[Rfam]
RNA sequence: CUUUCCAUUUAUUUGCUGCUAUAAUCUCUCAGUGAUAUGAGCAGUUAUACCAAUGGGAUAAAAUUGGGCUAUUAUAAAUUGAGAUGCAGUCACUUUCAUCUCUUCUGCAUGAUCUAGACAUUG
Numbered sequence: 001c002u003u004u005c006c007a008u009u010u011a012u013u014u015g016c017u018g019c020u021a022u023a024a025u026c027u028c029u030c031a032g033u034g035a036u037a038u039g040a041g042c043a044g045u046u047a048u049a050c051c052a053a054u055g056g057g058a059u060a061a062a063a064u065u066g067g068g069c070u071a072u073u074a075u076a077a078a079u080u081g082a083g084a085u086g087c088a089g090u091c092a093c094u095u096u097c098a099u100c101u102c103u104u105c106u107g108c109a110u111g112a113u114c115u116a117g118a119c120a121u122u123g
Base pairs, nucleotide, nucleotide: 003058004057005056006055007054008053015045016044017043018042019041020040022037023036025035026034064117065116066115067114068113070111071110073109075107076106081102082101083100084099085098086097088095089094
RNA: Small nucleolar RNA SNORA20